Source information: A member of the RNA family "mir-166 microRNA precursor family" from Trema orientale, 201 nucleotides long. The source organism's lineage runs through Eukaryota, Euphyllophyta, Spermatophyta, rosids and Trema.
RNA sequence: UUUGAUGGGAAUGUCGUUUGGCUCGAUGUCACCUAGGUGUUUUGUAUAUCUAUAUAUAAAUAUAUGUAUAUAUAUGUAUUUUAUGUCUUUGAAUUAAUUCCAAAGAAUGCAACAUAGUUGAUACAUAUAAGUAUAUAGACAUAUAAAAGAUGAUGAUAUAGCUCCCUAAAUGAUGUCGGACCAGGCUUCAUUCCCCUCAAA
Numbered sequence: 001u002u003u004g005a006u007g008g009g010a011a012u013g014u015c016g017u018u019u020g021g022c023u024c025g026a027u028g029u030c031a032c033c034u035a036g037g038u039g040u041u042u043u044g045u046a047u048a049u050c051u052a053u054a055u056a057u058a059a060a061u062a063u064a065u066g067u068a069u070a071u072a073u074a075u076g077u078a079u080u081u082u083a084u085g086u087c088u089u090u091g092a093a094u095u096a097a098u099u100c101c102a103a104a105g106a107a108u109g110c111a112a113c114a115u116a117g118u119u120g121a122u123a124c125a126u127a128u129a130a131g132u133a134u135a136u137a138g139a140c141a142u143a144u145a146a147a148a149g150a151u152g153a154u155g156a157u158a159u160a161g162c163u164c165c166c167u168a169a170a171u172g173a174u175g176u177c178g179g180a181c182c183a184g185g186c187u188u189c190a191u192u193c194c195c196c197u198c199a200a201a
Stems, first nucleotide, its partner, number of pairs: 001201005007195007016186006024178008
Rfam describes the family as follows. This family represents the plant microRNA (miRNA) precursor mir-166. A reference for the family is Ambros (2001), "microRNAs: tiny regulators with great potential", Cell.